Description:
The record is a 76-nucleotide RNA from Diatraea saccharalis, which matches "mir-2755 microRNA precursor family" in Rfam. Taxonomically the source falls in Diatraea (Eukaryota, Protostomia, Eumetabola, Neolepidoptera). The family's consensus secondary structure was predicted with RNAalifold.

RNA sequence: AAAGUGGAUCAAGGUGGCCUUGCAGCGUGUUUUCUCUUUAAGGUUUGCACCCUGUCAGACCAUACUUGUUUCAAAU
Numbered sequence: 001a002a003a004g005u006g007g008a009u010c011a012a013g014g015u016g017g018c019c020u021u022g023c024a025g026c027g028u029g030u031u032u033u034c035u036c037u038u039u040a041a042g043g044u045u046u047g048c049a050c051c052c053u054g055u056c057a058g059a060c061c062a063u064a065c066u067u068g069u070u071u072c073a074a075a076u
Stems, first nucleotide, its partner, number of pairs: 005073004010068004014063004019058002022055004027050004